[Rfam]
RNA sequence: AAAGCAGGGAUUUGUGUGUAUCGGCGUUGCGCGAUAAAUGCGCAUUGUAUCCGAAAGAGUUCCCUGCUAUAUCAUAUUUUGGGCGGAUGGGCAGUUGUGCUUCAAUCUCUACCGUUGAUUUUCUCAACAAUCAUCCUCCCCACACCU
Numbered sequence: 001a002a003a004g005c006a007g008g009g010a011u012u013u014g015u016g017u018g019u020a021u022c023g024g025c026g027u028u029g030c031g032c033g034a035u036a037a038a039u040g041c042g043c044a045u046u047g048u049a050u051c052c053g054a055a056a057g058a059g060u061u062c063c064c065u066g067c068u069a070u071a072u073c074a075u076a077u078u079u080u081g082g083g084c085g086g087a088u089g090g091g092c093a094g095u096u097g098u099g100c101u102u103c104a105a106u107c108u109c110u111a112c113c114g115u116u117g118a119u120u121u122u123c124u125c126a127a128c129a130a131u132c133a134u135c136c137u138c139c140c141c142a143c144a145c146c147u
Base pairs, nucleotide, nucleotide: 004067005066006065007064008063009062010061016043017042018041019040020039021038081140082139083138085136086135087134088133089132090131094128095127096126097125
Dot-bracket structure: ...(((((((.....((((((................)))))).................))))))).............(((.((((((...((((...........................))))..)))))).))).......

Annotation: This 147-nucleotide RNA sequence from Citrus unshiu belongs to the Rfam family "small nucleolar RNA snoR135". NCBI's taxonomy places the organism under Eukaryota, Streptophyta, Streptophytina, eudicotyledons, Citrus. By type it is an H/ACA-box small nucleolar RNA. For this family Rfam cites "Mining small RNA sequencing data: a new approach to identify small nucleolar RNAs in Arabidopsis" (Chen and Wu, Nucleic Acids Res, 2009). It scores 120 bits against the family's covariance model.